[Rfam]
RNA: Mammalian CPEB3 ribozyme
Organism: Crocodylus porosus
RNA sequence: CAACUACCAUAAUGGCCAGCAGAAGCACUUACAUCAUGGCCUUGACAGAUUCUAAUGAAUCUGAAAAUUCUGCU
Numbered sequence: 001c002a003a004c005u006a007c008c009a010u011a012a013u014g015g016c017c018a019g020c021a022g023a024a025g026c027a028c029u030u031a032c033a034u035c036a037u038g039g040c041c042u043u044g045a046c047a048g049a050u051u052c053u054a055a056u057g058a059a060u061c062u063g064a065a066a067a068u069u070c071u072g073c074u
Base pairs, nucleotide, nucleotide: 014041015040016039017038018074019073020072021071022070023069024068025037046063047062048061049060050059051058052057
Dot-bracket structure: .............[[[[((((((((...........)]]]]....(((((((....)))))))....)))))))